[Rfam]
RNA sequence: UUCAUCCUUCGGGGCAGGGUGGAAUUCCCGACCGGCGGUGAUGGCAACGGAUGUUGUCUUAGCCCGUGACCCGCAAUCUGCGGUGGAUUCGGUGAAACUCCGAAGCCGACAGUAACAGUCUGGAUGGGAGAAGGAUGUU
Numbered sequence: 001u002u003c004a005u006c007c008u009u010c011g012g013g014g015c016a017g018g019g020u021g022g023a024a025u026u027c028c029c030g031a032c033c034g035g036c037g038g039u040g041a042u043g044g045c046a047a048c049g050g051a052u053g054u055u056g057u058c059u060u061a062g063c064c065c066g067u068g069a070c071c072c073g074c075a076a077u078c079u080g081c082g083g084u085g086g087a088u089u090c091g092g093u094g095a096a097a098c099u100c101c102g103a104a105g106c107c108g109a110c111a112g113u114a115a116c117a118g119u120c121u122g123g124a125u126g127g128g129a130g131a132a133g134g135a136u137g138u139u
Stems, first nucleotide, its partner, number of pairs: 003137008017029003031119002033108002035067004062106002071083002088104005110122003
Dot-bracket structure: ..((((((((......(((.......))).[[((((((.......................[[))))...((.........))....(((((.......)))))]])).(((.....]]))).......))))))))..
Rfam assigns this 139-nucleotide RNA from Thermoflavimicrobium dichotomicum to the family "FMN riboswitch aptamer (RFN element)". It scores 113 bits against the family's covariance model.